The record is a 72-nucleotide sequence from Branchiostoma floridae, which matches "Mammalian CPEB3 ribozyme" in Rfam. Rfam describes the family as follows. The mammalian CPEB3 ribozyme is a self cleaving RNA located in the second intron of the CPEB3 gene which belongs to a family of genes regulating messenger RNA polyadenylation.

RNA sequence: AUUGCUGCAGUGGGGCCAUAGAAGGAGCGUUCUCGUCGCUGUCCCUGUCAGGCUCGUCCUGCGAAUCCUUCU
Numbered sequence: 001a002u003u004g005c006u007g008c009a010g011u012g013g014g015g016c017c018a019u020a021g022a023a024g025g026a027g028c029g030u031u032c033u034c035g036u037c038g039c040u041g042u043c044c045c046u047g048u049c050a051g052g053c054u055c056g057u058c059c060u061g062c063g064a065a066u067c068c069u070u071c072u
Stems, first nucleotide, its partner, number of pairs: 012045005020072007027039003049061004